[Rfam]
RNA sequence: UCAAUGUGGACGGAGGUCUCUGUUUCGCUAACCCUAAUACACUGGCUUCAGGGCGAUGGCUCUUCGCGGCGGUGCCUGUUGUUUUACUUGCUGACUUUCAGCGGGCACGGAGAGCAAGCGUAGACGACGACUAAAAAACGUCAGCUGGGAGACUCCUCCGUUCGCACAGCCCGACCUGCUCCAUUGCCCAAGAGCCCCGGGUUUUCUCUGUGGAAUGUAUCAGGCGCUCCCCGGUCUGUCUGUCUGGGGCCGCGGUCGGCAUCAUCUGCUGUCGCGAAGAGUUCGUCUCUGUUAGCCCUUGGGGGCCCUGGUGCGGAGUGGAGAGUCCGGGUCUGGGGGGUCGGGAGAACAAAAGGGGGCGCGCUGGUGCUCAGGCUCAGUCAUGCUUUCCCUUAGUUGUGGGAUAUGCGUGUUCAGCCAGUCCCCGACAUGU
Numbered sequence: 001u002c003a004a005u006g007u008g009g010a011c012g013g014a015g016g017u018c019u020c021u022g023u024u025u026c027g028c029u030a031a032c033c034c035u036a037a038u039a040c041a042c043u044g045g046c047u048u049c050a051g052g053g054c055g056a057u058g059g060c061u062c063u064u065c066g067c068g069g070c071g072g073u074g075c076c077u078g079u080u081g082u083u084u085u086a087c088u089u090g091c092u093g094a095c096u097u098u099c100a101g102c103g104g105g106c107a108c109g110g111a112g113a114g115c116a117a118g119c120g121u122a123g124a125c126g127a128c129g130a131c132u133a134a135a136a137a138a139c140g141u142c143a144g145c146u147g148g149g150a151g152a153c154u155c156c157u158c159c160g161u162u163c164g165c166a167c168a169g170c171c172c173g174a175c176c177u178g179c180u181c182c183a184u185u186g187c188c189c190a191a192g193a194g195c196c197c198c199g200g201g202u203u204u205u206c207u208c209u210g211u212g213g214a215a216u217g218u219a220u221c222a223g224g225c226g227c228u229c230c231c232c233g234g235u236c237u238g239u240c241u242g243u244c245u246g247g248g249g250c251c252g253c254g255g256u257c258g259g260c261a262u263c264a265u266c267u268g269c270u271g272u273c274g275c276g277a278a279g280a281g282u283u284c285g286u287c288u289c290u291g292u293u294a295g296c297c298c299u300u301g302g303g304g305g306c307c308c309u310g311g312u313g314c315g316g317a318g319u320g321g322a323g324a325g326u327c328c329g330g331g332u333c334u335g336g337g338g339g340g341u342c343g344g345g346a347g348a349a350c351a352a353a354a355g356g357g358g359g360c361g362c363g364c365u366g367g368u369g370c371u372c373a374g375g376c377u378c379a380g381u382c383a384u385g386c387u388u389u390c391c392c393u394u395a396g397u398u399g400u401g402g403g404a405u406a407u408g409c410g411u412g413u414u415c416a417g418c419c420a421g422u423c424c425c426c427g428a429c430a431u432g433u
Base pairs, nucleotide, nucleotide: 005166006165007164008163009162010161011160012159013158014157015156016155017152018151019150020149059115060114061113062112063111073107074106075105076104077103078102079101080100081099090145091144092143093142094141095140096138097137098136171344172343173342174341175340176339177338199328200327201326202325203324204323205322206321207320217314218313219312220311221310222309223308229304230303231302232301233300251276252275253274254273255272257271258270259269260268278290279289280288281287356425357424358423359422363418364417365416366415367414383411384410385409386408389404390403391402392401
RNA: Vertebrate telomerase RNA
Organism: Xenopus laevis